Record summary
Rfam assigns this 382-nucleotide part of an RNA from Neomoorella thermoacetica to the family "Bacterial large subunit ribosomal RNA". It scores 2970 bits against the family's covariance model. The base pairs follow the family's consensus structure, which is taken from published work. The source organism's lineage runs through Bacteria, Bacillota, Clostridia, Neomoorellaceae and Neomoorella.

RNA sequence: GAGAAGGCAGGUGAGAAUCCUGCCCGCCGAAAACCUAAGGGUUCCUGGGGAAGGCUCGUCCACCCAGGGUAAGUCGGGACCUAAGCCGAGGCGAAGAGCGUAGGCGAUGGGCAAUCGGUUGAAAUUCCGAUACCACCAAAGAGUCGUUAUUAGGAUGGGGUGACGCAGGAGGGUAGGCACAGCGCACGAUUGGAAGAGUGCGUCCAAGCCUGUAGGGUGUGAGGUAGGCAAAUCCGCCUCACAUGAACCUGAGAGGUGACGGGGAGCGAAAUUUAGUAGCGAACUGGCUGAGCCCAAACUGCCAAGAAAAGCCUCUAACGAGACUCUAGGUGCCCGUACCGCAAACCGACACAGGUAGGUGGGGAGAGGAUCCCAAGGCGCG
Numbered sequence: 001g002a003g004a005a006g007g008c009a010g011g012u013g014a015g016a017a018u019c020c021u022g023c024c025c026g027c028c029g030a031a032a033a034c035c036u037a038a039g040g041g042u043u044c045c046u047g048g049g050g051a052a053g054g055c056u057c058g059u060c061c062a063c064c065c066a067g068g069g070u071a072a073g074u075c076g077g078g079a080c081c082u083a084a085g086c087c088g089a090g091g092c093g094a095a096g097a098g099c100g101u102a103g104g105c106g107a108u109g110g111g112c113a114a115u116c117g118g119u120u121g122a123a124a125u126u127c128c129g130a131u132a133c134c135a136c137c138a139a140a141g142a143g144u145c146g147u148u149a150u151u152a153g154g155a156u157g158g159g160g161u162g163a164c165g166c167a168g169g170a171g172g173g174u175a176g177g178c179a180c181a182g183c184g185c186a187c188g189a190u191u192g193g194a195a196g197a198g199u200g201c202g203u204c205c206a207a208g209c210c211u212g213u214a215g216g217g218u219g220u221g222a223g224g225u226a227g228g229c230a231a232a233u234c235c236g237c238c239u240c241a242c243a244u245g246a247a248c249c250u251g252a253g254a255g256g257u258g259a260c261g262g263g264g265a266g267c268g269a270a271a272u273u274u275a276g277u278a279g280c281g282a283a284c285u286g287g288c289u290g291a292g293c294c295c296a297a298a299c300u301g302c303c304a305a306g307a308a309a310a311g312c313c314u315c316u317a318a319c320g321a322g323a324c325u326c327u328a329g330g331u332g333c334c335c336g337u338a339c340c341g342c343a344a345a346c347c348g349a350c351a352c353a354g355g356u357a358g359g360u361g362g363g364g365a366g367a368g369g370a371u372c373c374c375a376a377g378g379c380g381c382g
Stems, first nucleotide, its partner, number of pairs: 006024006025380004033360004039340002044068006053061002075336004080110002085105003089101001091099002114131005134332004140327006153319001157315005165302004171295003176289003180286002182203006204262002208257004215250003219242007227235002266280002269277001346355002362374004